Shown here is a 95-nucleotide sequence from Aminobacterium colombiense, a member of the family "Selenocysteine transfer RNA". The family has 109 seed sequences and 4,211 matches in Rfam 15.1.
RNA sequence: GGAGGCGAGUGGUCUCUGGUGAGGCCCCCGGGCUUCAAACCCGGCCGAGAGGCGGCAUUGGCUGUCUUUGGUGAGUUCGAUUCUCACACGCCUCC
Numbered sequence: 001g002g003a004g005g006c007g008a009g010u011g012g013u014c015u016c017u018g019g020u021g022a023g024g025c026c027c028c029c030g031g032g033c034u035u036c037a038a039a040c041c042c043g044g045c046c047g048a049g050a051g052g053c054g055g056c057a058u059u060g061g062c063u064g065u066c067u068u069u070g071g072u073g074a075g076u077u078c079g080a081u082u083c084u085c086a087c088a089c090g091c092c093u094c095c
Base pairs, nucleotide, nucleotide: 001095002094003093004092005091006090007089009087011026012025013024014023015022016021028044029043030042031041032040048069049068050067051066052065053064054063072086073085074084075083